Shown here is a 73-nucleotide sequence from Massilia forsythiae, a member of the family "Fluoride riboswitch aptamer (crcB RNA motif)". The family's consensus secondary structure is taken from published work. Gene Ontology terms of the family: response to fluoride and positive regulation of gene expression. Lineage of the source: Bacteria > Pseudomonadati > Pseudomonadota > Betaproteobacteria > Massilia.

RNA sequence: AUGCCUGCGGGAGAUGGCAUUCCUCCCGUGUUCCGCACGAACCGCCCACAGGGCUGAUGAUGCCUGCACGAUU
Numbered sequence: 001a002u003g004c005c006u007g008c009g010g011g012a013g014a015u016g017g018c019a020u021u022c023c024u025c026c027c028g029u030g031u032u033c034c035g036c037a038c039g040a041a042c043c044g045c046c047c048a049c050a051g052g053g054c055u056g057a058u059g060a061u062g063c064c065u066g067c068a069c070g071a072u073u
Stems, first nucleotide, its partner, number of pairs: 010026004016064006044054003